Shown here is a 362-nucleotide sequence from Pedobacter sp. Hv1, a member of the family "Bacterial RNase P class A".
[Rfam]
RNA sequence: AAUGCAAGCCAUUCUAUCGCCGUUCUGCGCAAUCAGAAAGGAGGAAAGUCCGGGCAACAUAGAGCAUCUCGCUUCCUAACGGGAAGGAAUUUGGGAUUGAAGACCUGAAUGACGGAAAGUGCCACAGAAAAUAUACCGUCUCGAUUAAUCGAGGUAAGGGUGAAAACGUGAGGUAAGAGCUCACGAACUCGCUAAGUGAUUAGUGUUUUGGUAAACCCCGGGAGUUGAAAGACCAAAUAGGCUAACGCAUGUAGGGCUGCUCGCUCGAUGUUAGUGGGUAGGUCGUUAGAGAUAAAUGGCAACGUUUAUACUAGAUUAAUGAUAGAAGAGAACAGAACCCGGCUUAUAGGCUUGCAUUUUUU
Numbered sequence: 001a002a003u004g005c006a007a008g009c010c011a012u013u014c015u016a017u018c019g020c021c022g023u024u025c026u027g028c029g030c031a032a033u034c035a036g037a038a039a040g041g042a043g044g045a046a047a048g049u050c051c052g053g054g055c056a057a058c059a060u061a062g063a064g065c066a067u068c069u070c071g072c073u074u075c076c077u078a079a080c081g082g083g084a085a086g087g088a089a090u091u092u093g094g095g096a097u098u099g100a101a102g103a104c105c106u107g108a109a110u111g112a113c114g115g116a117a118a119g120u121g122c123c124a125c126a127g128a129a130a131a132u133a134u135a136c137c138g139u140c141u142c143g144a145u146u147a148a149u150c151g152a153g154g155u156a157a158g159g160g161u162g163a164a165a166a167c168g169u170g171a172g173g174u175a176a177g178a179g180c181u182c183a184c185g186a187a188c189u190c191g192c193u194a195a196g197u198g199a200u201u202a203g204u205g206u207u208u209u210g211g212u213a214a215a216c217c218c219c220g221g222g223a224g225u226u227g228a229a230a231g232a233c234c235a236a237a238u239a240g241g242c243u244a245a246c247g248c249a250u251g252u253a254g255g256g257c258u259g260c261u262c263g264c265u266c267g268a269u270g271u272u273a274g275u276g277g278g279u280a281g282g283u284c285g286u287u288a289g290a291g292a293u294a295a296a297u298g299g300c301a302a303c304g305u306u307u308a309u310a311c312u313a314g315a316u317u318a319a320u321g322a323u324a325g326a327a328g329a330g331a332a333c334a335g336a337a338c339c340c341g342g343c344u345u346a347u348a349g350g351c352u353u354g355c356a357u358u359u360u361u362u
Base pairs, nucleotide, nucleotide: 001358002357003356004355005354006353007352008351009350010349011347012327013326014325015324016323017322018321020041021040023038024037025036026035027034046345047344048343050342051341052340053339054338055227056226057225058224062262063261064260065259067223068222069221070220071219072086073085074084075083076082087113089110090109091108092107093106094105095104114218115217119216120215121212122211123210136159137158138155139154140153141152142151143150144149167185168184169183170182171181172180187207190205191204192203193202194201195200231284232283233282234281241275242274243273244272245271246270254266255265256264257263292309293308294307295306296305297304298303